Description
The record is a 61-nucleotide RNA sequence from Pristionchus pacificus, which matches "mir-8364 microRNA precursor family" in Rfam. Gene Ontology terms of the family: miRNA-mediated post-transcriptional gene silencing and RISC complex.
RNA sequence: UCUUCAUUCUUCAUGCUCUCUCACCGGUCAGAUUGACGAGAGAGCACGCGCAAUGAAGAGA
Numbered sequence: 001u002c003u004u005c006a007u008u009c010u011u012c013a014u015g016c017u018c019u020c021u022c023a024c025c026g027g028u029c030a031g032a033u034u035g036a037c038g039a040g041a042g043a044g045c046a047c048g049c050g051c052a053a054u055g056a057a058g059a060g061a
Stems, first nucleotide, its partner, number of pairs: 001059007010050001012048001014046004019041004